[Rfam]
RNA sequence: AAGUGAGAUGAUGGUAUACCAUCUUUCGGGACUGACCUGAAAUGGAGAAAAAUGUGUAACUGCUGAUCACUU
Numbered sequence: 001a002a003g004u005g006a007g008a009u010g011a012u013g014g015u016a017u018a019c020c021a022u023c024u025u026u027c028g029g030g031a032c033u034g035a036c037c038u039g040a041a042a043u044g045g046a047g048a049a050a051a052a053u054g055u056g057u058a059a060c061u062g063c064u065g066a067u068c069a070c071u072u
Stems, first nucleotide, its partner, number of pairs: 001072006
The record is a 72-nucleotide sequence from Anolis carolinensis, which matches "Small nucleolar RNA SNORD2" in Rfam. Lineage of the source: Eukaryota > Chordata > Sauropsida > Sauria > Anolis. The sequence is in the family's curated seed alignment. Rfam 15.1 lists 1,116 matches to the family in 660 species. Rfam classes the family as a C/D-box small nucleolar RNA.